Shown here is a 126-nucleotide RNA sequence from Aneurinibacillus sp. XH2, a member of the family "EGFOA RNA". Rfam classes the family as a small RNA.

RNA sequence: CUUUUCCCAGAUACCACUCAAUGAGUGGUCCCGUCGUAGUGCCUAAUUGGCAGGGAAUCUUGACAGAGUGAUGGAAUGAUGCCAUCCACGCAGUAAAGCUACACCUGGGUGCGUCUGAUGUCUCGU
Numbered sequence: 001c002u003u004u005u006c007c008c009a010g011a012u013a014c015c016a017c018u019c020a021a022u023g024a025g026u027g028g029u030c031c032c033g034u035c036g037u038a039g040u041g042c043c044u045a046a047u048u049g050g051c052a053g054g055g056a057a058u059c060u061u062g063a064c065a066g067a068g069u070g071a072u073g074g075a076a077u078g079a080u081g082c083c084a085u086c087c088a089c090g091c092a093g094u095a096a097a098g099c100u101a102c103a104c105c106u107g108g109g110u111g112c113g114u115c116u117g118a119u120g121u122c123u124c125g126u
Base pairs, nucleotide, nucleotide: 006109007108008107009106010105033104034103036102037101038100039099040052041051042050043049059125062122063121064120065119070086071085072084073083074082088114089113090112091111092110